[Rfam]
RNA sequence: GCAGCAGGCCGGUUUGUCGCUCCGGUUCCGGCGCUUGUCGCGAUUCGGGGAGGAAAGUCCGGGCAACAUAGAGCACCAUACUUCCUAACGGGAAGCUAUCCGCGAGGGUAGAGUAGCGUAACAGAAAAUAACCGCCCCGUUUUCUCGUGAGAUUACGGAGUAAGGGUGAAAAGGUGAGGUAAGAGCUCACCGGGUAUCGUGGCAACACGGUAUGCCGUACGCCUUAUGGGUUGCAAGACCAUGUAUAUCGGAUAUGUAGGGUUGCUCGCCCGAUGCCGAGGGGUAGGUCGCUAAAGAGCAGUGGUGACACUGUCUCGCAGAUAAAUGACAAACAUCCCGCCUGUCGGGAUACAGAACCCGGCUUAUAGGCCCGCUGCUUUU
Numbered sequence: 001g002c003a004g005c006a007g008g009c010c011g012g013u014u015u016g017u018c019g020c021u022c023c024g025g026u027u028c029c030g031g032c033g034c035u036u037g038u039c040g041c042g043a044u045u046c047g048g049g050g051a052g053g054a055a056a057g058u059c060c061g062g063g064c065a066a067c068a069u070a071g072a073g074c075a076c077c078a079u080a081c082u083u084c085c086u087a088a089c090g091g092g093a094a095g096c097u098a099u100c101c102g103c104g105a106g107g108g109u110a111g112a113g114u115a116g117c118g119u120a121a122c123a124g125a126a127a128a129u130a131a132c133c134g135c136c137c138c139g140u141u142u143u144c145u146c147g148u149g150a151g152a153u154u155a156c157g158g159a160g161u162a163a164g165g166g167u168g169a170a171a172a173g174g175u176g177a178g179g180u181a182a183g184a185g186c187u188c189a190c191c192g193g194g195u196a197u198c199g200u201g202g203c204a205a206c207a208c209g210g211u212a213u214g215c216c217g218u219a220c221g222c223c224u225u226a227u228g229g230g231u232u233g234c235a236a237g238a239c240c241a242u243g244u245a246u247a248u249c250g251g252a253u254a255u256g257u258a259g260g261g262u263u264g265c266u267c268g269c270c271c272g273a274u275g276c277c278g279a280g281g282g283g284u285a286g287g288u289c290g291c292u293a294a295a296g297a298g299c300a301g302u303g304g305u306g307a308c309a310c311u312g313u314c315u316c317g318c319a320g321a322u323a324a325a326u327g328a329c330a331a332a333c334a335u336c337c338c339g340c341c342u343g344u345c346g347g348g349a350u351a352c353a354g355a356a357c358c359c360g361g362c363u364u365a366u367a368g369g370c371c372c373g374c375u376g377c378u379u380u381u
Base pairs, nucleotide, nucleotide: 001377002376003375004374005373007371008370009369010368011366012333013332014331015330016329017328018327020050021049022048023047024046025045027043028042055364056363057362059361060360061359062358063357064233065232066231067230071267072266073265074264076229077228078227079226080225081095082094083093084092085091096111098109099108100107101106112224113223116222117221118220119219120218132165133164134161135160137158138157139156140155173191174190175189176188177187178186193215194213195212196211197210198209199208200207201206237289238288239287240286248279249278250277251276259271260270261269262268296316297315298314299312300311301310302309303308
The family of this 381-nucleotide RNA from Petrimonas mucosa is "Bacterial RNase P class A". The family's consensus secondary structure is taken from published work. Rfam's curators write: Ribonuclease P (RNase P) is a ubiquitous endoribonuclease, found in archaea, bacteria and eukarya as well as chloroplasts and mitochondria. It is annotated as a ribozyme.